[Rfam]
RNA sequence: UACUAAGAUAGAGGCGCGGCAUUUAAGAGUACUGUCAUGGAGUUAAGCAGCGUUGAAGUGACAGGAAAGGAAAUGCUGCCGAAGCGUAUUGCGUCUGCUUGCCGCAAUACAGCUGGGGUUGCACAGAACAUGUGCAGCACUGCCACAAGUGUGGAGCGCUAUCAUUCGC
Numbered sequence: 001u002a003c004u005a006a007g008a009u010a011g012a013g014g015c016g017c018g019g020c021a022u023u024u025a026a027g028a029g030u031a032c033u034g035u036c037a038u039g040g041a042g043u044u045a046a047g048c049a050g051c052g053u054u055g056a057a058g059u060g061a062c063a064g065g066a067a068a069g070g071a072a073a074u075g076c077u078g079c080c081g082a083a084g085c086g087u088a089u090u091g092c093g094u095c096u097g098c099u100u101g102c103c104g105c106a107a108u109a110c111a112g113c114u115g116g117g118g119u120u121g122c123a124c125a126g127a128a129c130a131u132g133u134g135c136a137g138c139a140c141u142g143c144c145a146c147a148a149g150u151g152u153g154g155a156g157c158g159c160u161a162u163c164a165u166u167c168g169c
Stems, first nucleotide, its partner, number of pairs: 007163005016079009032064007083114003086110008115141002118138008143154004
The record is a 169-nucleotide sequence from Alicyclobacillus acidoterrestris, which matches "Lysine riboswitch aptamer" in Rfam.
About the family: Riboswitches are metabolite binding domains within certain messenger RNAs that serve as precision sensors for their corresponding targets.
Pairs were carried over by alignment from the consensus structure, which is taken from published work.
NCBI's taxonomy places the organism under Bacteria, Bacilli, Caryophanales, Alicyclobacillaceae, Alicyclobacillus.